[Rfam]
The family of this 157-nucleotide RNA sequence from Paenibacillus mucilaginosus is "FMN riboswitch aptamer (RFN element)". Lineage of the source: Bacteria > Bacillati > Bacilli > Paenibacillus > Paenibacillus mucilaginosus. It scores 104 bits against the family's covariance model.
RNA sequence: AUGAACCUUCGGGGCAGGGUGCAAUUCCCUACCGGCGGUGAUGAUACGUUCGUGUAUCUCAGCCCGCGACUCCCGCUUCCGGCUUCGUGCCGGGGACGGGACUGACUUGGUGAGAACCCAAGGCCGACGGUGACAGUCCGGAUGGGAGAAGGUGAAG
Number, nucleotide and partner (000 for none) at each position: 001a000002u000003g000004a000005a153006c152007c151008u150009u149010c148011g000012g000013g000014g000015c000016a000017g029018g028019g027020u000021g000022c000023a000024a000025u000026u000027c019028c018029c017030u000031a137032c136033c126034g125035g067036c066037g065038g064039u000040g000041a000042u000043g000044a000045u000046a000047c000048g000049u000050u000051c000052g000053u000054g000055u000056a000057u000058c000059u000060c000061a000062g124063c123064c038065c037066g036067c035068g000069a000070c000071u101072c100073c099074c098075g097076c000077u000078u000079c000080c000081g000082g000083c000084u000085u000086c000087g000088u000089g000090c000091c000092g000093g000094g000095g000096a000097c075098g074099g073100g072101a071102c000103u000104g000105a000106c122107u121108u120109g119110g118111u000112g000113a000114g000115a000116a000117c000118c110119c109120a108121a107122g106123g063124c062125c034126g033127a000128c140129g139130g138131u000132g000133a000134c000135a000136g032137u031138c130139c129140g128141g000142a000143u000144g000145g000146g000147a000148g010149a009150a008151g007152g006153u005154g000155a000156a000157g000